This 137-nucleotide sequence from Clupea harengus belongs to the Rfam family "Small nucleolar RNA SNORA84". Rfam links the family to the GO terms RNA processing and nucleolus. The source organism's lineage runs through Eukaryota, Eumetazoa, Craniata, Neopterygii and Clupea. For this family Rfam cites "Experimental RNomics: identification of 140 candidates for small non-messenger RNAs in the plant Arabidopsis thaliana" (Marker et al., Curr Biol, 2002).
[Rfam]
RNA sequence: GCCUGGUGGUUCCCAGAGACAGCUAGUCAGUGCUGAUCUGUGGGAUUUUGAUUGACAGGCAUAAAGAGAUCUCUGCGAUAUAAUGCAUGGUGUCUGCUUCCCUGUGCAGCCUCCAUAGCCCGGUUUCAGAGACAUUC
Numbered sequence: 001g002c003c004u005g006g007u008g009g010u011u012c013c014c015a016g017a018g019a020c021a022g023c024u025a026g027u028c029a030g031u032g033c034u035g036a037u038c039u040g041u042g043g044g045a046u047u048u049u050g051a052u053u054g055a056c057a058g059g060c061a062u063a064a065a066g067a068g069a070u071c072u073c074u075g076c077g078a079u080a081u082a083a084u085g086c087a088u089g090g091u092g093u094c095u096g097c098u099u100c101c102c103u104g105u106g107c108a109g110c111c112u113c114c115a116u117a118g119c120c121c122g123g124u125u126u127c128a129g130a131g132a133c134a135u136u137c
Stems, first nucleotide, its partner, number of pairs: 001060004007051001008048001011045005017039001020035004073129001075127001077125003085119002087116004092111001094109004